Rfam assigns this 61-nucleotide sequence from Pelargonium alternans to the family "Plastid-psbA-4 3UTR RNA". Rfam describes the family as follows. Plastid psbA-4 is a non-coding RNA (ncRNA) present in plastids. It was identified in inverted repeat sequences in the 3 prime untranslate region (3UTR) of photosystem II quinone-binding protein (psbA).

[Rfam]
RNA sequence: AAAGGAGCAGUAACCAACUUCUUGUUCUAGCAAGAAAGAGGGUUAGUAUUGCUCCUUUACU
Numbered sequence: 001a002a003a004g005g006a007g008c009a010g011u012a013a014c015c016a017a018c019u020u021c022u023u024g025u026u027c028u029a030g031c032a033a034g035a036a037a038g039a040g041g042g043u044u045a046g047u048a049u050u051g052c053u054c055c056u057u058u059a060c061u
Base pairs, nucleotide, nucleotide: 001058002057003056004055005054006053007052008051009050010049011048012047016043019040020039021038022033023032024031

Record summary:
The family's RNA type in Rfam is cis-regulatory element.